[Rfam]
RNA sequence: GGCCUCCUGGUGCUUACCACAGGCUGUGUGCUGACACCGACUGUGCAGAAAUAGGAGGCAGAGUGAGCAAACUCACCCCACACACCUCAGCUCAGGCUCUGUAUUGUGAAUGGGGAGACAUUG
Numbered sequence: 001g002g003c004c005u006c007c008u009g010g011u012g013c014u015u016a017c018c019a020c021a022g023g024c025u026g027u028g029u030g031c032u033g034a035c036a037c038c039g040a041c042u043g044u045g046c047a048g049a050a051a052u053a054g055g056a057g058g059c060a061g062a063g064u065g066a067g068c069a070a071a072c073u074c075a076c077c078c079c080a081c082a083c084a085c086c087u088c089a090g091c092u093c094a095g096g097c098u099c100u101g102u103a104u105u106g107u108g109a110a111u112g113g114g115g116a117g118a119c120a121u122u123g
Base pairs, nucleotide, nucleotide: 002059003058004057005056006055007054008053020043021042022041026037027036028035029034076115077114078113079112080111088101089100090099
Dot-bracket structure: .(((((((...........(((...((((....))))...))).........)))))))................(((((.......(((........))).........)))))........